[Rfam]
RNA sequence: CAGGAGUAUGUCGAAAAUCCUAUAAUAGAGUAGACG
Numbered sequence: 001c002a003g004g005a006g007u008a009u010g011u012c013g014a015a016a017a018u019c020c021u022a023u024a025a026u027a028g029a030g031u032a033g034a035c036g
Stems, first nucleotide, its partner, number of pairs: 002021004010035003